[Rfam]
RNA sequence: AUAAGUCUGAAAUAUUCGUAGAGCUCUUAUUUUGAACCUACAGAGUUCAUAAGGGAGUUCGAUAUUUAGUUGUGAAUUGUCCUUUAAGUCCAAAAGGAUUAUUUGGCAAGGACAGGGAAACAGCUGUGAGAACACCCACCUAUCAUAGAGAUAGGUGUCAAAAUCGGAGUAGCGGUAUUUUGGAUUUUAA
Numbered sequence: 001a002u003a004a005g006u007c008u009g010a011a012a013u014a015u016u017c018g019u020a021g022a023g024c025u026c027u028u029a030u031u032u033u034g035a036a037c038c039u040a041c042a043g044a045g046u047u048c049a050u051a052a053g054g055g056a057g058u059u060c061g062a063u064a065u066u067u068a069g070u071u072g073u074g075a076a077u078u079g080u081c082c083u084u085u086a087a088g089u090c091c092a093a094a095a096g097g098a099u100u101a102u103u104u105g106g107c108a109a110g111g112a113c114a115g116g117g118a119a120a121c122a123g124c125u126g127u128g129a130g131a132a133c134a135c136c137c138a139c140c141u142a143u144c145a146u147a148g149a150g151a152u153a154g155g156u157g158u159c160a161a162a163a164u165c166g167g168a169g170u171a172g173c174g175g176u177a178u179u180u181u182g183g184a185u186u187u188u189a190a
Stems, first nucleotide, its partner, number of pairs: 003187013017174003029164007036156003053137003057133004064127001067126007079113006
A member of the RNA family "6S / SsrS RNA" from Clostridium homopropionicum, 190 nucleotides long. Rfam 15.1 lists 5,006 matches to the family in 4,638 species. Rfam's curators write: E. coli 6S RNA was the first non coding RNA to be sequenced, but its function was unknown until recently. The family's consensus secondary structure is taken from published work.